Overview: A member of the RNA family "Small nucleolar RNA SNORD19" from Struthio camelus, 73 nucleotides long. The family is grouped with related families in Rfam's "SNORD19 clan". For this family Rfam cites "RNomics: an experimental approach that identifies 201 candidates for novel, small, non-messenger RNAs in mouse" (Huttenhofer et al., EMBO J, 2001). It is annotated as a C/D-box small nucleolar RNA. Lineage of the source: Eukaryota > Teleostomi > Aves > Struthionidae > Struthio camelus. The pairing is the family consensus, mapped onto this sequence. It scores 40 bits against the family's covariance model.
RNA sequence: GAGAAAUGAAGACCUCACCAUUCCUUACUAUUACAGUGAAGACCUCAGAUCCAACUCUGAUCUCACUCUUACC
Numbered sequence: 001g002a003g004a005a006a007u008g009a010a011g012a013c014c015u016c017a018c019c020a021u022u023c024c025u026u027a028c029u030a031u032u033a034c035a036g037u038g039a040a041g042a043c044c045u046c047a048g049a050u051c052c053a054a055c056u057c058u059g060a061u062c063u064c065a066c067u068c069u070u071a072c073c
Base pairs, nucleotide, nucleotide: 001064002063003062004061